RNA sequence: CAUCGGCGACUGAUCACGCCGUAGUCUGAAAGAGGCUCGUCCCCCGCCGCUUCAGACUCGGGCAAAGGCCUUAUCCCCCUCUCCGGGCCUUUGUCCCCAUAUUCCGGAGCCGUCGUGGCAGUCCCCGCCUCAAGCCACGACGGCCUCCA
Numbered sequence: 001c002a003u004c005g006g007c008g009a010c011u012g013a014u015c016a017c018g019c020c021g022u023a024g025u026c027u028g029a030a031a032g033a034g035g036c037u038c039g040u041c042c043c044c045c046g047c048c049g050c051u052u053c054a055g056a057c058u059c060g061g062g063c064a065a066a067g068g069c070c071u072u073a074u075c076c077c078c079c080u081c082u083c084c085g086g087g088c089c090u091u092u093g094u095c096c097c098c099a100u101a102u103u104c105c106g107g108a109g110c111c112g113u114c115g116u117g118g119c120a121g122u123c124c125c126c127g128c129c130u131c132a133a134g135c136c137a138c139g140a141c142g143g144c145c146u147c148c149a
Stems, first nucleotide, its partner, number of pairs: 025056006034048003060096011107145001110143010